RtT RNA: a 131-nucleotide RNA from Salmonella enterica. By type it is a cis-regulatory element. Rfam describes the family as follows. This family represents a bacterial cis-regulatory element known as RtT RNA. The exact function of RtT is unknown although it is thought that it may be involved in changing the cellular response in relation to amino acid starvation. It is one of the family's seed sequences.
[Rfam]
RNA sequence: AUAUCUCUCUGUACGGGAAGGAUGAGAAGCUUCUACCAGGGUUCGAUUCGAGCGCAGCGAGAAAGCGUUGCCGCAGGCAACGACCCGAAGGGCGAAGCGCGCAGCGCUGAGUCAUCCUUCCCCCACCACCA
Numbered sequence: 001a002u003a004u005c006u007c008u009c010u011g012u013a014c015g016g017g018a019a020g021g022a023u024g025a026g027a028a029g030c031u032u033c034u035a036c037c038a039g040g041g042u043u044c045g046a047u048u049c050g051a052g053c054g055c056a057g058c059g060a061g062a063a064a065g066c067g068u069u070g071c072c073g074c075a076g077g078c079a080a081c082g083a084c085c086c087g088a089a090g091g092g093c094g095a096a097g098c099g100c101g102c103a104g105c106g107c108u109g110a111g112u113c114a115u116c117c118u119u120c121c122c123c124c125a126c127c128a129c130c131a
Base pairs, nucleotide, nucleotide: 015122016121017120018119019118020117021116023114033094036092037091042089043088044087045086049059050058066082067081068080069079070078071077